[Rfam]
RNA sequence: ACUAGUAUUUAACGUAUCAGGGUCCAGCAACAAAAAACCCCGACUUUCGGGGUUUUUUGUUAUCUGAAUUUCUGCACGUUCGGAAUUCAGGUGUUGCUUGGAAUUGAAAUUGGGCUCUGAGCCCUUUUUUU
Number, nucleotide and partner (000 for none) at each position: 001a000002c000003u000004a000005g000006u000007a000008u000009u000010u000011a000012a000013c000014g000015u000016a000017u000018c000019a000020g000021g000022g000023u000024c000025c000026a000027g000028c000029a000030a000031c000032a000033a000034a056035a055036a054037a053038c052039c051040c050041c049042g048043a000044c000045u000046u000047u000048c042049g041050g040051g039052g038053u037054u036055u035056u034057u000058u000059g000060u000061u000062a000063u000064c000065u000066g000067a000068a000069u000070u000071u000072c000073u000074g000075c000076a000077c000078g000079u000080u000081c000082g000083g000084a000085a000086u000087u000088c000089a000090g000091g000092u000093g000094u000095u000096g000097c000098u000099u000100g000101g000102a000103a000104u000105u000106g000107a000108a000109a000110u000111u000112g124113g123114g122115c121116u000117c000118u000119g000120a000121g115122c114123c113124c112125u000126u000127u000128u000129u000130u000131u000
A member of the RNA family "Gammaprotebacteria rimP leader" from Vibrio proteolyticus, 131 nucleotides long. It scores 90 bits against the family's covariance model.